[Rfam]
RNA sequence: AUCGGCUACGGAGAUAUCACACCUCAUACAUAUUUGGGUCGUCUAAUUGGUUCAAUUUGUGCAUUGGCUGGUGUGCUCACAAUUGCUCUUCCAGUUCCAGUUAUUGUUUCAAAU
Numbered sequence: 001a002u003c004g005g006c007u008a009c010g011g012a013g014a015u016a017u018c019a020c021a022c023c024u025c026a027u028a029c030a031u032a033u034u035u036g037g038g039u040c041g042u043c044u045a046a047u048u049g050g051u052u053c054a055a056u057u058u059g060u061g062c063a064u065u066g067g068c069u070g071g072u073g074u075g076c077u078c079a080c081a082a083u084u085g086c087u088c089u090u091c092c093a094g095u096u097c098c099a100g101u102u103a104u105u106g107u108u109u110c111a112a113a114u
Base pairs, nucleotide, nucleotide: 001114002113005110008107009106010105011104013102014101015100019096021095022094037077038076039075050062051061
Rfam assigns this 114-nucleotide sequence from Caenorhabditis angaria to the family "Potassium channel RNA editing signal". It scores 69 bits against the family's covariance model. It is annotated as a cis-regulatory element. The base pairs follow the family's consensus structure, which is taken from published work. From the family's description: This family represents a group of sequences related to the human potassium channel Kv1.1 hairpin element which directs the efficient modification of an adenosine to inosine by an adenosine deaminase acting on RNA (ADAR). The ADAR modification causes an isoleucine/valine recoding event which lies in the ion-conducting pore of the potassium channel. It is thought that this editing event targets the process of fast inactivation and allows a more rapid recovery from inactivation at negative potentials.